[Rfam]
RNA sequence: UCUCCUGAUGAACAAAAUAAUUAAAAGCAUAGUUCACCUGAAAUCUUCGGAUUACUGAACGAAAAACUUUAUACCAUCUUUCAUUUUUUCUGAUC
Numbered sequence: 001u002c003u004c005c006u007g008a009u010g011a012a013c014a015a016a017a018u019a020a021u022u023a024a025a026a027g028c029a030u031a032g033u034u035c036a037c038c039u040g041a042a043a044u045c046u047u048c049g050g051a052u053u054a055c056u057g058a059a060c061g062a063a064a065a066a067c068u069u070u071a072u073a074c075c076a077u078c079u080u081u082c083a084u085u086u087u088u089u090c091u092g093a094u095c
Stems, first nucleotide, its partner, number of pairs: 006019001008018002032060005042053004
A. fumigatus snoRNA Afu_263: a 95-nucleotide RNA sequence from Penicillium angulare. On this family, see Jochl et al., Nucleic Acids Res 2008: "Small ncRNA transcriptome analysis from Aspergillus fumigatus suggests a novel mechanism for regulation of protein synthesis". The match comes from Rfam's covariance-model search (83 bits). By type it is a C/D-box small nucleolar RNA. Gene Ontology terms of the family: nucleolus and RNA processing.